The record is a 120-nucleotide sequence from Glycine soja, which matches "MIR1520 microRNA precursor family" in Rfam.
The match comes from Rfam's covariance-model search (106 bits).
Gene Ontology terms of the family: RISC complex and miRNA-mediated post-transcriptional gene silencing.
RNA sequence: UUCUCAUUGGAUGACAAUUGUCACGUAUCAUAUUUUGAUUGGUCAAUAAAAAUAACAAUGCAUUUCAUUUUUCAUUGAGUUGAUAUCCAAUCAGAACAUGAUAUUUGACCGUUGUCAUCC
Numbered sequence: 001u002u003c004u005c006a007u008u009g010g011a012u013g014a015c016a017a018u019u020g021u022c023a024c025g026u027a028u029c030a031u032a033u034u035u036u037g038a039u040u041g042g043u044c045a046a047u048a049a050a051a052a053u054a055a056c057a058a059u060g061c062a063u064u065u066c067a068u069u070u071u072u073c074a075u076u077g078a079g080u081u082g083a084u085a086u087c088c089a090a091u092c093a094g095a096a097c098a099u100g101a102u103a104u105u106u107g108a109c110c111g112u113u114g115u116c117a118u119c120c
Stems, first nucleotide, its partner, number of pairs: 020109004025104002029100003033096004038091005